[Rfam]
A member of the RNA family "Group II catalytic intron D1-D4-7" from Paraburkholderia sp. BL23I1N1, 149 nucleotides long.
Rfam links the family to the GO term Group II intron splicing.
About the family: Group II introns are found in rRNA, tRNA and mRNA of organelles in fungi, plants and protists, and also in mRNA in bacteria.
It scores 118 bits against the family's covariance model.
The family has 244 seed sequences and 1,296 matches in Rfam 15.1.
RNA sequence: CCGGCUGUUCCAUCAGCCGUUCCCUACCCGGACAUGCGAAGCUGGCAACAGCUUGGUGUGAAGCUUCGGGGACAAAGCAACCGCCGGAUUCACGGUACGUCGAGCUGCGAAGCAAGACGGAAUCUGCCAGCACGAAGGCGGAGAGGAGC
Numbered sequence: 001c002c003g004g005c006u007g008u009u010c011c012a013u014c015a016g017c018c019g020u021u022c023c024c025u026a027c028c029c030g031g032a033c034a035u036g037c038g039a040a041g042c043u044g045g046c047a048a049c050a051g052c053u054u055g056g057u058g059u060g061a062a063g064c065u066u067c068g069g070g071g072a073c074a075a076a077g078c079a080a081c082c083g084c085c086g087g088a089u090u091c092a093c094g095g096u097a098c099g100u101c102g103a104g105c106u107g108c109g110a111a112g113c114a115a116g117a118c119g120g121a122a123u124c125u126g127c128c129a130g131c132a133c134g135a136a137g138g139c140g141g142a143g144a145g146g147a148g149c
Stems, first nucleotide, its partner, number of pairs: 002019006028069005033060005039054006083096004098119004105112002123142006